[Rfam]
RNA sequence: AUGAGUAACGCGAAAUCAUGUGGAAUUCAUGAUCGCCGCAAGUUCUAGGGUUCCCACAGAUGUAAUUCGAUGUGGGUUGAAUCGGCCCCUAAGGGCACAGCGAAAGUUUUCCCCGAUGGGUACCUCCCAAGUGACGAGGUCUCCUUUCUGCACAUGUUUUGAAUGUGACGAACCAGUUUCGACAGGAGUUUUCAUUUAGAAGAUAUGCACGAGACAGAAAAAGAUAGAGGAUAUUGGAUGUCACUACCAUUCUAGGGCCUCCUGGAAAGAACUUGGGAGAUGGCCAACAAAUGCAUCAGUCGAUAGAUAUCUUCUACGGAGUGGUGCUUGGUCAGUAGACCGUACCUAAACCAACACAGGUGAACUGGUUUAGUAAACCAAGGCGAUA
Numbered sequence: 001a002u003g004a005g006u007a008a009c010g011c012g013a014a015a016u017c018a019u020g021u022g023g024a025a026u027u028c029a030u031g032a033u034c035g036c037c038g039c040a041a042g043u044u045c046u047a048g049g050g051u052u053c054c055c056a057c058a059g060a061u062g063u064a065a066u067u068c069g070a071u072g073u074g075g076g077u078u079g080a081a082u083c084g085g086c087c088c089c090u091a092a093g094g095g096c097a098c099a100g101c102g103a104a105a106g107u108u109u110u111c112c113c114c115g116a117u118g119g120g121u122a123c124c125u126c127c128c129a130a131g132u133g134a135c136g137a138g139g140u141c142u143c144c145u146u147u148c149u150g151c152a153c154a155u156g157u158u159u160u161g162a163a164u165g166u167g168a169c170g171a172a173c174c175a176g177u178u179u180c181g182a183c184a185g186g187a188g189u190u191u192u193c194a195u196u197u198a199g200a201a202g203a204u205a206u207g208c209a210c211g212a213g214a215c216a217g218a219a220a221a222a223g224a225u226a227g228a229g230g231a232u233a234u235u236g237g238a239u240g241u242c243a244c245u246a247c248c249a250u251u252c253u254a255g256g257g258c259c260u261c262c263u264g265g266a267a268a269g270a271a272c273u274u275g276g277g278a279g280a281u282g283g284c285c286a287a288c289a290a291a292u293g294c295a296u297c298a299g300u301c302g303a304u305a306g307a308u309a310u311c312u313u314c315u316a317c318g319g320a321g322u323g324g325u326g327c328u329u330g331g332u333c334a335g336u337a338g339a340c341c342g343u344a345c346c347u348a349a350a351c352c353a354a355c356a357c358a359g360g361u362g363a364a365c366u367g368g369u370u371u372a373g374u375a376a377a378c379c380a381a382g383g384c385g386a387u388a
Stems, first nucleotide, its partner, number of pairs: 015033006034385004042365004048346002053076006061069002083342003087119002093114003097110001099108003123256002259338002262335004351360002366380004
Background: Archaeal large subunit ribosomal RNA: a 388-nucleotide part of an RNA from Coccomyxa sp. Obi. A search with the family's covariance model found it, with a score of 1197 bits. Taxonomically the source falls in Coccomyxa (Eukaryota, Viridiplantae, Chlorophyta, Trebouxiophyceae). The base pairs follow the family's consensus structure, which is taken from published work.